The record is a 90-nucleotide RNA from Turnera subulata, which matches "Small nucleolar RNA R11/Z151" in Rfam. It scores 84 bits against the family's covariance model.

[Rfam]
RNA sequence: GGGCUUAUGAUGAUAAUAUAAAUUAUCUUAGCGGAUUUCAGUGAGACAUUUUUUUUGUCAAUGAUCUGAUUGUUACACACGCUGAAGCCU
Numbered sequence: 001g002g003g004c005u006u007a008u009g010a011u012g013a014u015a016a017u018a019u020a021a022a023u024u025a026u027c028u029u030a031g032c033g034g035a036u037u038u039c040a041g042u043g044a045g046a047c048a049u050u051u052u053u054u055u056u057g058u059c060a061a062u063g064a065u066c067u068g069a070u071u072g073u074u075a076c077a078c079a080c081g082c083u084g085a086a087g088c089c090u
Stems, first nucleotide, its partner, number of pairs: 001090005